The family of this 101-nucleotide sequence from Rummeliibacillus stabekisii is "SAM riboswitch aptamer (S box leader)".
RNA sequence: UUCUUAUCCAGAGAGGCGGAGGGACUGGCCCUGUGAAGCUUCGGCAACGGACAUAUGCACCGUGCCAAUUCCAGCAAGCGAUUAAGCUUGGAAGAUAAGAA
Numbered sequence: 001u002u003c004u005u006a007u008c009c010a011g012a013g014a015g016g017c018g019g020a021g022g023g024a025c026u027g028g029c030c031c032u033g034u035g036a037a038g039c040u041u042c043g044g045c046a047a048c049g050g051a052c053a054u055a056u057g058c059a060c061c062g063u064g065c066c067a068a069u070u071c072c073a074g075c076a077a078g079c080g081a082u083u084a085a086g087c088u089u090g091g092a093a094g095a096u097a098a099g100a101a
Stems, first nucleotide, its partner, number of pairs: 001101008013042005021031003025074004043066004048062002050058001052057001070093001075090005
The base pairs follow the family's consensus structure, which is taken from published work.